[Rfam]
This 129-nucleotide RNA from Cynara cardunculus belongs to the Rfam family "U11 spliceosomal RNA".
By type it is a spliceosomal small nuclear RNA.
The source organism's lineage runs through Eukaryota, Embryophyta, Spermatophyta, Asterales and Cynara cardunculus subsp. cardunculus.
A search with the family's covariance model found it, with a score of 75 bits.
RNA sequence: UAAAAGGGUCGGUUGGCUAAAUAUGCCACGCUCGCCCACUGAUUGGUGAGUGCUGUAUGGCUAUCAAGACAUAUGGCCGACAUAAUUUGUGGAACUUUAUAGGGUUGGCUCCUUUUGGCCGAUCCUUCA
Dot-bracket structure: .......(((((.((((.......))))((((((((........))))))))(((((((..........)))))))))))).................(..(.(((((...((...))))))))..)..